[Rfam]
Pseudomon-groES RNA: a 116-nucleotide RNA sequence from Pseudomonas sp. FeS53a. The source organism's lineage runs through Bacteria, Pseudomonadati, Gammaproteobacteria, Pseudomonadales and Pseudomonas.
Nucleotides: 116
Stems, first nucleotide, its partner, number of pairs: 010019003021038006049069008072084004098116006
Number, partner (000 for none) and nucleotide at each position: 001000c002000u003000a004000u005000c006000c007000g008000a009000c010019a011018c012017c013000g014000c015000a016000a017012g018011g019010u020000u021038a022037c023036u024035g025034c026033c027000c028000c029000c030000a031000g032000g033026g034025g035024c036023a037022g038021u039000u040000c041000a042000g043000a044000c045000u046000u047000c048000c049069g050068c051067a052066g053065c054064g055063u056062g057000u058000c059000u060000g061000g062056c063055a064054c065053g066052c067051u068050g069049c070000u071000g072084c073083c074082g075081g076000c077000a078000c079000c080000g081075c082074c083073g084072g085000c086000u087000u088000u089000u090000g091000c092000u093000a094000a095000c096000c097000c098116g099115c100114c101113g102112g103111u104000g105000a106000u107000u108000u109000u110000c111103a112102c113101c114100g115099g116098c